The family of this 123-nucleotide RNA sequence from Clostridium sp. USBA 49 is "c-di-AMP riboswitch aptamer (ydaO/yuaA leader)". The base pairs follow the family's consensus structure. It scores 88 bits against the family's covariance model. From the family's description: This family represents a conserved RNA structure found upstream of the ydaO and yuaA genes in Bacillus subtilis and related genes in other bacteria.

[Rfam]
RNA sequence: UAAUAAUCCUAGCCUAAGUUUUAAAAACGCGGGGAAACCACUUUUUUGGGGUGAAUCGUUUUUCGUAGGUUAUGCCUUUACCGAACCCGUCAGCUAACCCCGUAGGUAAAAGGAGGAAAAUAA
Numbered sequence: 001u002a003a004u005a006a007u008c009c010u011a012g013c014c015u016a017a018g019u020u021u022u023a024a025a026a027a028c029g030c031g032g033g034g035a036a037a038c039c040a041c042u043u044u045u046u047u048g049g050g051g052u053g054a055a056u057c058g059u060u061u062u063u064c065g066u067a068g069g070u071u072a073u074g075c076c077u078u079u080a081c082c083g084a085a086c087c088c089g090u091c092a093g094c095u096a097a098c099c100c101c102g103u104a105g106g107u108a109a110a111a112g113g114a115g116g117a118a119a120a121u122a123a
Stems, first nucleotide, its partner, number of pairs: 012107003018028003029103006039048002049088003057065002068082003